RNA: MIR168 microRNA precursor family
Organism: Elaeis guineensis
RNA sequence: CUCGCCGCCUUCUCGAAUUCGCUUGGUGCAGGUCGGGAACCGUUUCGGAUCCGUCCGAUUCGAUCACGAUGUGAUGUGGUGUGUUCGUUCUGGUGGUCCCGGUUCCCCACUUGCAUCAACUGAAUUCGAGAACCUCUGGCGAAA
Number, nucleotide and partner (000 for none) at each position: 001c000002u000003c000004g000005c000006c000007g000008c000009c000010u000011u000012c000013u129014c128015g000016a000017a125018u124019u123020c122021g000022c000023u119024u118025g117026g116027u115028g114029c113030a112031g111032g110033u000034c000035g107036g106037g105038a104039a000040c102041c101042g000043u000044u000045u000046c000047g000048g000049a000050u000051c000052c000053g000054u000055c000056c000057g000058a000059u000060u000061c000062g000063a000064u000065c000066a000067c000068g000069a000070u000071g000072u000073g000074a000075u000076g000077u000078g000079g000080u000081g000082u000083g000084u000085u000086c000087g000088u000089u000090c000091u000092g000093g000094u000095g000096g000097u000098c000099c000100c000101g041102g040103u000104u038105c037106c036107c035108c000109a000110c032111u031112u030113g029114c028115a027116u026117c025118a024119a023120c000121u000122g020123a019124a018125u017126u000127c000128g014129a013130g000131a000132a000133c000134c000135u000136c000137u000138g000139g000140c000141g000142a000143a000144a000